The family of this 127-nucleotide sequence from Heterocephalus glaber is "Small Cajal body specific RNA 8". The source organism's lineage runs through Eukaryota, Tetrapoda, Boreoeutheria, Hystricomorpha and Heterocephalus. Rfam classes the family as a small Cajal body RNA. Pairs were carried over by alignment from the consensus structure, which is taken from published work. Rfam describes the family as follows. scaRNAs are a specific class of small nuclear RNAs which localise to the Cajal bodies and guide the modification of RNA polymerase II transcribed spliceosomal RNAs U1, U2, U4, U5 and U12. U92 belong to the H/ACA box class of guide RNAs as it has the predicted hairpin-hinge-hairpin-tail structure, conserved H/ACA-box motifs and is found associated with GAR1.
[Rfam]
RNA sequence: UGAGAGGCAGAUACAUAAAUUAGGCUGAAAUGCUACUCUAAUUGUCAUUAUACCUUCCUAGAAUCAAUUACCUUUUGAUGACCAAGACAGAUUGAAAUUGUAAUGGACAUAUAUGAGGCAGACAAUU
Numbered sequence: 001u002g003a004g005a006g007g008c009a010g011a012u013a014c015a016u017a018a019a020u021u022a023g024g025c026u027g028a029a030a031u032g033c034u035a036c037u038c039u040a041a042u043u044g045u046c047a048u049u050a051u052a053c054c055u056u057c058c059u060a061g062a063a064u065c066a067a068u069u070a071c072c073u074u075u076u077g078a079u080g081a082c083c084a085a086g087a088c089a090g091a092u093u094g095a096a097a098u099u100g101u102a103a104u105g106g107a108c109a110u111a112u113a114u115g116a117g118g119c120a121g122a123c124a125a126u127u
Stems, first nucleotide, its partner, number of pairs: 002058001004056004015045004023037002068121002071118004082106003087101004
Dot-bracket structure: .(.((((.......((((....((...........))....)))).......)))).).........((.((((.......(((..((((.......))))..)))........)))).))......